[Rfam]
RNA sequence: GUAAGGACUAGGGUAGCUCCCGAAAAGAAGGCACCCACCUUCCUGUCCUUGCUUUUUAAAAUGGG
Numbered sequence: 001g002u003a004a005g006g007a008c009u010a011g012g013g014u015a016g017c018u019c020c021c022g023a024a025a026a027g028a029a030g031g032c033a034c035c036c037a038c039c040u041u042c043c044u045g046u047c048c049u050u051g052c053u054u055u056u057u058a059a060a061a062u063g064g065g
Stems, first nucleotide, its partner, number of pairs: 001052008011021003027042005035065002

Shown here is a 65-nucleotide RNA sequence from Halomonas phage YPHTV-1, a member of the family "int-alpA RNA". Pairs were carried over by alignment from the consensus structure, which is taken from published work. Acidobacteria (1 example), Planctomycetes (1 example), Proteobacteria. Rfam classes the family as a small RNA.